A member of the RNA family "Vault RNA" from Acanthaster planci, 126 nucleotides long. Rfam's curators write: This family of RNAs are found as part of the enigmatic vault ribonucleoprotein complex. The complex consists of a major vault protein (MVP), two minor vault proteins (VPARP and TEP1), and several small untranslated RNA molecules. The organism belongs to Acanthaster, within Eukaryota. It scores 64 bits against the family's covariance model.
[Rfam]
RNA sequence: GUGCCGGCUUCAGCCAAGUGGUUACUUCGUUUCUAACGAGCUUUUGGUACAAAGUUUAUUGGUUUACCCAGUAGGGUAGUGGGUUCGAAUCCCACAUAAGAACUACUGGCGCCAUCCGGCACUUUU
Numbered sequence: 001g002u003g004c005c006g007g008c009u010u011c012a013g014c015c016a017a018g019u020g021g022u023u024a025c026u027u028c029g030u031u032u033c034u035a036a037c038g039a040g041c042u043u044u045u046g047g048u049a050c051a052a053a054g055u056u057u058a059u060u061g062g063u064u065u066a067c068c069c070a071g072u073a074g075g076g077u078a079g080u081g082g083g084u085u086c087g088a089a090u091c092c093c094a095c096a097u098a099a100g101a102a103c104u105a106c107u108g109g110c111g112c113c114a115u116c117c118g119g120c121a122c123u124u125u126u
Stems, first nucleotide, its partner, number of pairs: 002121006013110004018106004026089004